[Rfam]
RNA sequence: GGGUCUACCUCGGGGGGCCUUCACAGGCUGAGAUGCUGACCAGCGGACCCGUUGAACCUGAACCGGUUAACACCGGCGGAGGGAAGGUGCGGUGUCUCGAA
Numbered sequence: 001g002g003g004u005c006u007a008c009c010u011c012g013g014g015g016g017g018c019c020u021u022c023a024c025a026g027g028c029u030g031a032g033a034u035g036c037u038g039a040c041c042a043g044c045g046g047a048c049c050c051g052u053u054g055a056a057c058c059u060g061a062a063c064c065g066g067u068u069a070a071c072a073c074c075g076g077c078g079g080a081g082g083g084a085a086g087g088u089g090c091g092g093u094g095u096c097u098c099g100a101a
Base pairs, nucleotide, nucleotide: 006089007088008087009086010085011051012050013049014048017028018027019026020025035044036043037042057082058081059080063076064075065074066073
Dot-bracket structure: .....(((((((((..((((....))))......(((....)))...)))).....(((...((((......))))...)))..)))))............

The record is a 101-nucleotide RNA from Jannaschia rubra, which matches "TPP riboswitch aptamer (THI element)" in Rfam. The base pairs follow the family's consensus structure, which is taken from published work. Its family is annotated with thiamine pyrophosphate binding in the Gene Ontology. The match comes from Rfam's covariance-model search (74 bits).